Rfam assigns this 512-nucleotide part of an RNA to the family "Eukaryotic large subunit ribosomal RNA". For this family Rfam cites "The comparative RNA web (CRW) site: an online database of comparative sequence and structure information for ribosomal, intron, and other RNAs" (Cannone et al., BMC Bioinformatics, 2002). Gene Ontology terms of the family: structural constituent of ribosome and ribosome. Pairs were carried over by alignment from the consensus structure, which is taken from published work.
[Rfam]
RNA sequence: CCCUCCGAAGUUUCCCUCAGGAUAGCUGGUGCUCGAGUGGAAUCAGUCUCAUCCGGUAAAGCGAAUGAUUAGAGGCCUUGGGGCCGAAACGACCUCAACCUAUUCUCAAACUUUCAAUGGGUGAGAAGUCCGGUUUACAUAACUGAAGCCCGGACGAUUCUCGCAGGAUGUGAGUGCCCAGUGGGCCAAUUUUGGUAAGCAGAACUGGCGCUGUGGGAUGAACCAAACGCCGGGAUAAGGAGCCCGAUGCAAGACGCUCAUGAGAUCCCAUGAAAGGUGUUGGUUGCUAUAGACAGCAGGACGGUGGCCAUGGAAGUCGGAAUCCGCUAAGGAGUGUGUAACAACUCACCUGCCGAAGCAACUAGCCCUGAAAAUGGAGGGCGCUGUAGCGUCGAAUCCCAUACCCGGCCGCCGCGGCAGCGUGGUGUUAGGCCGCGGCGAGUAGGAGGGUCGUGGGGUGCAGCAUUGAAGGUGCGGCCGUGAGGCCGACUGGAGCGCACCCUAGCGUUGAU
Numbered sequence: 001c002c003c004u005c006c007g008a009a010g011u012u013u014c015c016c017u018c019a020g021g022a023u024a025g026c027u028g029g030u031g032c033u034c035g036a037g038u039g040g041a042a043u044c045a046g047u048c049u050c051a052u053c054c055g056g057u058a059a060a061g062c063g064a065a066u067g068a069u070u071a072g073a074g075g076c077c078u079u080g081g082g083g084c085c086g087a088a089a090c091g092a093c094c095u096c097a098a099c100c101u102a103u104u105c106u107c108a109a110a111c112u113u114u115c116a117a118u119g120g121g122u123g124a125g126a127a128g129u130c131c132g133g134u135u136u137a138c139a140u141a142a143c144u145g146a147a148g149c150c151c152g153g154a155c156g157a158u159u160c161u162c163g164c165a166g167g168a169u170g171u172g173a174g175u176g177c178c179c180a181g182u183g184g185g186c187c188a189a190u191u192u193u194g195g196u197a198a199g200c201a202g203a204a205c206u207g208g209c210g211c212u213g214u215g216g217g218a219u220g221a222a223c224c225a226a227a228c229g230c231c232g233g234g235a236u237a238a239g240g241a242g243c244c245c246g247a248u249g250c251a252a253g254a255c256g257c258u259c260a261u262g263a264g265a266u267c268c269c270a271u272g273a274a275a276g277g278u279g280u281u282g283g284u285u286g287c288u289a290u291a292g293a294c295a296g297c298a299g300g301a302c303g304g305u306g307g308c309c310a311u312g313g314a315a316g317u318c319g320g321a322a323u324c325c326g327c328u329a330a331g332g333a334g335u336g337u338g339u340a341a342c343a344a345c346u347c348a349c350c351u352g353c354c355g356a357a358g359c360a361a362c363u364a365g366c367c368c369u370g371a372a373a374a375u376g377g378a379g380g381g382c383g384c385u386g387u388a389g390c391g392u393c394g395a396a397u398c399c400c401a402u403a404c405c406c407g408g409c410c411g412c413c414g415c416g417g418c419a420g421c422g423u424g425g426u427g428u429u430a431g432g433c434c435g436c437g438g439c440g441a442g443u444a445g446g447a448g449g450g451u452c453g454u455g456g457g458g459u460g461c462a463g464c465a466u467u468g469a470a471g472g473u474g475c476g477g478c479c480g481u482g483a484g485g486c487c488g489a490c491u492g493g494a495g496c497g498c499a500c501c502c503u504a505g506c507g508u509u510g511a512u
Stems, first nucleotide, its partner, number of pairs: 001450006011024001013022003028178006047126008059114001060112002066108003071103001073101003078098006085091001128155004132150005185209004190204005214225003229409005239399003248395001250394001255391003275369003279366010296353005302326003308320002327331001332347001336345002410440009452507001454504008463496002471491002477486003